[Rfam]
RNA sequence: GCCUCUAUAGCUCAGUUGGUAGAGCGCGGCACUAGUAAUGCCGAGGUCUUCAGUUCAAAUCUGAAUGGAGGCA
Numbered sequence: 001g002c003c004u005c006u007a008u009a010g011c012u013c014a015g016u017u018g019g020u021a022g023a024g025c026g027c028g029g030c031a032c033u034a035g036u037a038a039u040g041c042c043g044a045g046g047u048c049u050u051c052a053g054u055u056c057a058a059a060u061c062u063g064a065a066u067g068g069a070g071g072c073a
Base pairs, nucleotide, nucleotide: 001072002071003070004069005068006067007066010025011024012023013022027043028042029041030040031039049065050064051063052062053061
RNA: tRNA